[Rfam]
This 157-nucleotide RNA from Chloroflexia bacterium SDU3-3 belongs to the Rfam family "SAM riboswitch aptamer (S box leader)".
Taxonomically the source falls in Chloroflexia (Bacteria, Bacillati, Chloroflexota).

RNA sequence: GACUCAUCACGAGGGGCGGAGGGACUGGCCCGGUGAAGCCCGGCAACCCCCAUGAGCACCUUGCCUUUAGCGGCCCACGGCGGCGGCAGAAGGCGGGAAGCAGGCAUGGGAAGGUGCCAAUUCCUGCAGGCGGGUGCUGCCGCCUGGUAGAUGAGAG
Numbered sequence: 001g002a003c004u005c006a007u008c009a010c011g012a013g014g015g016g017c018g019g020a021g022g023g024a025c026u027g028g029c030c031c032g033g034u035g036a037a038g039c040c041c042g043g044c045a046a047c048c049c050c051c052a053u054g055a056g057c058a059c060c061u062u063g064c065c066u067u068u069a070g071c072g073g074c075c076c077a078c079g080g081c082g083g084c085g086g087c088a089g090a091a092g093g094c095g096g097g098a099a100g101c102a103g104g105c106a107u108g109g110g111a112a113g114g115u116g117c118c119a120a121u122u123c124c125u126g127c128a129g130g131c132g133g134g135u136g137c138u139g140c141c142g143c144c145u146g147g148u149a150g151a152u153g154a155g156a157g
Stems, first nucleotide, its partner, number of pairs: 003155006013041001015040003021031003025126001027124002042118004047114002049110006122149001127146006